Rfam assigns this 268-nucleotide RNA from Firmicutes bacterium CAG:791 to the family "Bacterial large signal recognition particle RNA". Its family is annotated with signal recognition particle, plasma membrane targeting and SRP-dependent cotranslational protein targeting to membrane, signal sequence recognition in the Gene Ontology. Taxonomically the source falls in Bacillota (Bacteria, Bacillati). The family's RNA type in Rfam is non-coding RNA gene. Pairs were carried over by alignment from the consensus structure, which is taken from published work.

[Rfam]
RNA sequence: GAAGGAUAAGUGCGGUAUAACCUGCCGGGAAAGCUCUUGCCCGCAAUCGGCUUAUUUGCUAUACUAAUGAAAUCCUGCCGCUGGCAGGGCUCGGGCAGCCGCCCGGGUGCAUCGUAUUGAAGUUUGGGUCUCACGCAAUGAAUCCUGCGAACCGUGUCAGAUCGGGAACGAAGCAGCACUAAGCAGAUCCUUUCAUGUGCCGUGAGGAAGCCUGGCGGAGCGAUGUAUCCGGUACCGUGCCCGGGUCCUGUCGGCGGCAGGAUUUUUU
Numbered sequence: 001g002a003a004g005g006a007u008a009a010g011u012g013c014g015g016u017a018u019a020a021c022c023u024g025c026c027g028g029g030a031a032a033g034c035u036c037u038u039g040c041c042c043g044c045a046a047u048c049g050g051c052u053u054a055u056u057u058g059c060u061a062u063a064c065u066a067a068u069g070a071a072a073u074c075c076u077g078c079c080g081c082u083g084g085c086a087g088g089g090c091u092c093g094g095g096c097a098g099c100c101g102c103c104c105g106g107g108u109g110c111a112u113c114g115u116a117u118u119g120a121a122g123u124u125u126g127g128g129u130c131u132c133a134c135g136c137a138a139u140g141a142a143u144c145c146u147g148c149g150a151a152c153c154g155u156g157u158c159a160g161a162u163c164g165g166g167a168a169c170g171a172a173g174c175a176g177c178a179c180u181a182a183g184c185a186g187a188u189c190c191u192u193u194c195a196u197g198u199g200c201c202g203u204g205a206g207g208a209a210g211c212c213u214g215g216c217g218g219a220g221c222g223a224u225g226u227a228u229c230c231g232g233u234a235c236c237g238u239g240c241c242c243g244g245g246u247c248c249u250g251u252c253g254g255c256g257g258c259a260g261g262a263u264u265u266u267u268u
Base pairs, nucleotide, nucleotide: 001268002267003266004265005264006263007262009068011066012044013043014042015041049064053063074261075260076259077258078257079256080255082253083252084251085250086249087248088247089246090245091244092243093242094241095240096239097238101235103232104231105230106229107228108227111226112225113222114221115220122216123215125214126213127212128211129210130206131205132204133203134202135201136197137196139195140194141193142192145186146185147184148183154179155178156177157176162171163170164169